[Rfam]
RNA sequence: GAGCCUCUUUCCUGUUCCUCGCUGUGCAGUGCAGGUCUGGGGGCACUUGGUGCUACAGCACAGCAGUGGAAGUCCAGAUGGGUUCUUCUCCACUGGGACACUCAUCUCUACACCUCUGCAGCACCA
Number, nucleotide and partner (000 for none) at each position: 001g000002a000003g000004c000005c000006u000007c000008u000009u043010u042011c041012c040013u039014g038015u000016u000017c035018c034019u000020c000021g000022c000023u000024g000025u000026g000027c000028a000029g000030u000031g000032c000033a000034g018035g017036u000037c000038u014039g013040g012041g011042g010043g009044c000045a000046c000047u000048u000049g000050g000051u000052g000053c000054u000055a000056c000057a000058g000059c000060a000061c000062a000063g119064c118065a117066g116067u000068g114069g000070a000071a000072g000073u000074c000075c000076a107077g106078a105079u104080g103081g102082g101083u100084u000085c000086u000087u000088c000089u098090c097091c096092a000093c000094u000095g000096g091097g090098a089099c000100a083101c082102u081103c080104a079105u078106c077107u076108c000109u000110a000111c000112a000113c000114c068115u000116c066117u065118g064119c063120a000121g000122c000123a000124c000125c000126a000
The family of this 126-nucleotide sequence from Tichodroma muraria is "Small nucleolar RNA SNORA55". NCBI's taxonomy places the organism under Eukaryota, Amniota, Coelurosauria, Telluraves, Tichodroma. A search with the family's covariance model found it, with a score of 80 bits. From the family's description: ACA55 is a member of the H/ACA class of snoRNA that guide the sites of modification of uridines to pseudouridines. Rfam classes the family as an H/ACA-box small nucleolar RNA.